[Rfam]
Background
The record is a 132-nucleotide sequence from Amazona aestiva, which matches "Small nucleolar RNA SNORA1" in Rfam. ACA1 is a member of the H/ACA class of snoRNA that guide the sites of modification of uridines to pseudouridines. Rfam links the family to the GO terms nucleolus and RNA processing.

RNA sequence: UGCCAUGUUAUUCAACAAACAGACACAACUCACUGUAUGUCUUAAUUGAAGAAUGUGGCUAGAAAAGGAACAGGUUGUGCUUUCCUCACUGUACAGUUAGUUGCAAUGGUGACAAAGAGACCUGUAACAGGU
Numbered sequence: 001u002g003c004c005a006u007g008u009u010a011u012u013c014a015a016c017a018a019a020c021a022g023a024c025a026c027a028a029c030u031c032a033c034u035g036u037a038u039g040u041c042u043u044a045a046u047u048g049a050a051g052a053a054u055g056u057g058g059c060u061a062g063a064a065a066a067g068g069a070a071c072a073g074g075u076u077g078u079g080c081u082u083u084c085c086u087c088a089c090u091g092u093a094c095a096g097u098u099a100g101u102u103g104c105a106a107u108g109g110u111g112a113c114a115a116a117g118a119g120a121c122c123u124g125u126a127a128c129a130g131g132u
Base pairs, nucleotide, nucleotide: 002059003058004057006055007054008053021042022041023040024039025038027036070125071124072123073122074121084111086109087108088107
Dot-bracket structure: .(((.(((............(((((.(........).)))))..........))).)))..........(((((.........(.(((..................))).).........))))).......